Notes:
Nuclear RNase P: a 388-nucleotide RNA from Trametes versicolor.
RNA sequence: ACAGCACCAAAGCCGCGAUGCUCACACCGUACAGGACGCCCUCGGGCGUCCGCCCUCGUGAGCGGGCUAAGGUCUGAGCAUUCCAAUCCCUCUCGAUCGACUCUAGCCGGGUCCGGUCUUAACAAACCGAGCGUCGCACCAGAAACACACUCCGCGCUGGGGUCGUCAGACUCCCCUUCGGGGCCCCGGAGAAGCGCUGCGGCGUCGAGGGGUGGCCAGCGGACUUUGGGAGACGGCGCAGGGAUCGGGCGCGCACGCGCCCCCUCGGCGGCCUGCUCGCGCGGGCUGAGAGGGUGUGCGCGUGCGCCGUCCUUUAGUGCACUUCGCGGCUCGCGUUCACGGGGCCUCGCGCCCCUGCGAAACUCGAUUCAGACUACUCUGGUGCUGU
Numbered sequence: 001a002c003a004g005c006a007c008c009a010a011a012g013c014c015g016c017g018a019u020g021c022u023c024a025c026a027c028c029g030u031a032c033a034g035g036a037c038g039c040c041c042u043c044g045g046g047c048g049u050c051c052g053c054c055c056u057c058g059u060g061a062g063c064g065g066g067c068u069a070a071g072g073u074c075u076g077a078g079c080a081u082u083c084c085a086a087u088c089c090c091u092c093u094c095g096a097u098c099g100a101c102u103c104u105a106g107c108c109g110g111g112u113c114c115g116g117u118c119u120u121a122a123c124a125a126a127c128c129g130a131g132c133g134u135c136g137c138a139c140c141a142g143a144a145a146c147a148c149a150c151u152c153c154g155c156g157c158u159g160g161g162g163u164c165g166u167c168a169g170a171c172u173c174c175c176c177u178u179c180g181g182g183g184c185c186c187c188g189g190a191g192a193a194g195c196g197c198u199g200c201g202g203c204g205u206c207g208a209g210g211g212g213u214g215g216c217c218a219g220c221g222g223a224c225u226u227u228g229g230g231a232g233a234c235g236g237c238g239c240a241g242g243g244a245u246c247g248g249g250c251g252c253g254c255a256c257g258c259g260c261c262c263c264c265u266c267g268g269c270g271g272c273c274u275g276c277u278c279g280c281g282c283g284g285g286c287u288g289a290g291a292g293g294g295u296g297u298g299c300g301c302g303u304g305c306g307c308c309g310u311c312c313u314u315u316a317g318u319g320c321a322c323u324u325c326g327c328g329g330c331u332c333g334c335g336u337u338c339a340c341g342g343g344g345c346c347u348c349g350c351g352c353c354c355c356u357g358c359g360a361a362a363c364u365c366g367a368u369u370c371a372g373a374c375u376a377c378u379c380u381g382g383u384g385c386u387g388u
Base pairs, nucleotide, nucleotide: 001388002387003386004385007382008381009380012330013329014328015327016326017325018324020063021062022061023060024059034051035050036049037048038047039045074372075371076370077369078368082244083243084242099113100112101111102110103109114129115128116127117126119124131239132238133237134236135235136234149225151223152222153221154220155219331360332359333358334357335356
It scores 45 bits against the family's covariance model. Lineage of the source: Eukaryota > Opisthokonta > Dikarya > Polyporales > Trametes versicolor.